The family of this 84-nucleotide sequence from Geobacter metallireducens is "c-di-GMP-I riboswitch aptamer".

[Rfam]
RNA sequence: UUUCCGAAAGGGCAAACUUCGGGUAACCGGGGGACGCAAAGCCACGGGUCCUGACUCCAUGGUCAGGAUAGCCGGGUUGUCGAA
Numbered sequence: 001u002u003u004c005c006g007a008a009a010g011g012g013c014a015a016a017c018u019u020c021g022g023g024u025a026a027c028c029g030g031g032g033g034a035c036g037c038a039a040a041g042c043c044a045c046g047g048g049u050c051c052u053g054a055c056u057c058c059a060u061g062g063u064c065a066g067g068a069u070a071g072c073c074g075g076g077u078u079g080u081c082g083a084a
Stems, first nucleotide, its partner, number of pairs: 012037002017032006040078004045074003048069009